[Rfam]
RNA sequence: GCCGCCGUCGGGACGUCGUCGAUGUCGACCCCGCCGACGAUCUCGAAGUACAUGACGACGGCGUCGUCGCCCUCCAGGCCGAACUGCACCCCGUUGGCGCCGAACCCCUU
Number, nucleotide and partner (000 for none) at each position: 001g000002c000003c000004g000005c000006c039007g038008u037009c036010g035011g034012g000013a000014c033015g032016u000017c000018g029019u028020c027021g026022a000023u000024g000025u000026c021027g020028a019029c018030c000031c000032c015033g014034c011035c010036g009037a008038c007039g006040a000041u000042c000043u000044c066045g065046a064047a000048g000049u000050a000051c000052a000053u000054g000055a000056c000057g000058a000059c000060g000061g000062c000063g000064u046065c045066g044067u000068c000069g000070c000071c000072c000073u000074c000075c000076a000077g000078g000079c000080c000081g000082a000083a000084c000085u000086g000087c000088a000089c000090c000091c102092c000093g100094u099095u000096g000097g000098c000099g094100c093101c000102g091103a000104a000105c000106c000107c000108c000109u000110u000
RNA: Mycobacterium sRNA Ms_AS-1